[Rfam]
RNA sequence: CCGUGCUAGGUGGGAAGGUAGCGGUGUCCUGUAACUUGCAAUCCGCUCUAGCAAGACUGAAUUCCUUCUCGAGGCUGCAUGUAUUGUAGGGUCUGCCUCUUGCACGUAGUGUUGACGUUUGGGUCCUGCGCAAUGGGAACCCAUGAACCAUGUCAGGUCCGGAAGGAAGCAGCAUUAAGUGGAUCCUCCCAUGUGCCGCAGGGUCGCCUAGACCGAGCUGGCGACAGGAGUAACGCCUAUGUGCUGCAGUCGAAGGAAGGUGCACGG
Numbered sequence: 001c002c003g004u005g006c007u008a009g010g011u012g013g014g015a016a017g018g019u020a021g022c023g024g025u026g027u028c029c030u031g032u033a034a035c036u037u038g039c040a041a042u043c044c045g046c047u048c049u050a051g052c053a054a055g056a057c058u059g060a061a062u063u064c065c066u067u068c069u070c071g072a073g074g075c076u077g078c079a080u081g082u083a084u085u086g087u088a089g090g091g092u093c094u095g096c097c098u099c100u101u102g103c104a105c106g107u108a109g110u111g112u113u114g115a116c117g118u119u120u121g122g123g124u125c126c127u128g129c130g131c132a133a134u135g136g137g138a139a140c141c142c143a144u145g146a147a148c149c150a151u152g153u154c155a156g157g158u159c160c161g162g163a164a165g166g167a168a169g170c171a172g173c174a175u176u177a178a179g180u181g182g183a184u185c186c187u188c189c190c191a192u193g194u195g196c197c198g199c200a201g202g203g204u205c206g207c208c209u210a211g212a213c214c215g216a217g218c219u220g221g222c223g224a225c226a227g228g229a230g231u232a233a234c235g236c237c238u239a240u241g242u243g244c245u246g247c248a249g250u251c252g253a254a255g256g257a258a259g260g261u262g263c264a265c266g267g
Stems, first nucleotide, its partner, number of pairs: 001267006009058003012030004017025001019023001035055005064260006073251005081244004086240005094232002098229005106222002108219003117213008125202006131193002134191005139184001141182004150175004158167003
Bacterial large signal recognition particle RNA: a 267-nucleotide RNA sequence from Bacillus sp. OxB-1.
Gene Ontology terms of the family: signal recognition particle, plasma membrane targeting and SRP-dependent cotranslational protein targeting to membrane, signal sequence recognition.
From the family's description: The signal recognition particle (SRP) is a universally conserved ribonucleoprotein involved in the co-translational targeting of proteins to membranes.